[Rfam]
RNA sequence: UUUUUAGGUCACUCACUCAACCCGGGUGUGAUGUGUUUUUGAGCCAUCACAACCUCCUUGAGUGAGCGAUUUGAAAU
Numbered sequence: 001u002u003u004u005u006a007g008g009u010c011a012c013u014c015a016c017u018c019a020a021c022c023c024g025g026g027u028g029u030g031a032u033g034u035g036u037u038u039u040u041g042a043g044c045c046a047u048c049a050c051a052a053c054c055u056c057c058u059u060g061a062g063u064g065a066g067c068g069a070u071u072u073g074a075a076a077u
Stems, first nucleotide, its partner, number of pairs: 009068001012066009024054002027051007
Dot-bracket structure: ........(..(((((((((...((.(((((((...........))))))).))...))))))))).).........
Description
The family of this 77-nucleotide RNA from Callosobruchus maculatus is "mir-67 microRNA precursor family". Pairs were carried over by alignment from the consensus structure, which was predicted with RNAalifold. It scores 70 bits against the family's covariance model. The family has 33 seed sequences and 196 matches in Rfam 15.1. Gene Ontology terms of the family: RISC complex and miRNA-mediated post-transcriptional gene silencing. A reference for the family is Cao et al. (2008), "Identification of conserved microRNAs in Bombyx mori (silkworm) and regulation of fibroin L chain production by microRNAs in heterologous system", Insect Biochem Mol Biol.